A member of the RNA family "Small Cajal body specific RNA 16" from Molossus molossus, 187 nucleotides long. Rfam's curators write: scaRNAs are a specific class of small nuclear RNAs which localise to the Cajal bodies and guide the modification of RNA polymerase II transcribed spliceosomal RNAs U1, U2, U4, U5 and U12. It scores 114 bits against the family's covariance model. The source organism's lineage runs through Eukaryota, Tetrapoda, Mammalia, Laurasiatheria and Molossus. Rfam links the family to the GO terms nucleolus and RNA processing. The family's consensus secondary structure was predicted with RNAfold.
RNA sequence: CAGCUUUUGAGAACACCGAGUGGUCUCGCUGGACCUGCCCCGUUGCGGACGCAGCCUCUUACCAGGCAGCCUACCCUGACCUAAAGUAAAUGCAAAGGGGAAUUUCGUCCUGGGUUUUGGAUUUGCAGUAAUAGGUGUGAACAUUCUAGCAGCGGUUUGAUGAUCAUGUAUGAUACUGCAAACAAGA
Dot-bracket structure: ..(.((..(......(.(..(.(..(.((((...(............)...)))).....).).).).).....)..)).)...........(...((.(.....).))....).......(((((((((.((....(((.((((..(((....))).)))).)))....)).))))))))).....